RNA: c-di-GMP-I riboswitch aptamer
RNA sequence: UUUGCACAAGGGCAAAGCCAUUGAAAAAUGGUGACGCAAAGCUAUAGGGGCUACAGCGAAUUCGCUAAGCCAGCCAGUUACCAAU
Numbered sequence: 001u002u003u004g005c006a007c008a009a010g011g012g013c014a015a016a017g018c019c020a021u022u023g024a025a026a027a028a029u030g031g032u033g034a035c036g037c038a039a040a041g042c043u044a045u046a047g048g049g050g051c052u053a054c055a056g057c058g059a060a061u062u063c064g065c066u067a068a069g070c071c072a073g074c075c076a077g078u079u080a081c082c083a084a085u
Stems, first nucleotide, its partner, number of pairs: 012037002017032006040079004047075002049071003056065003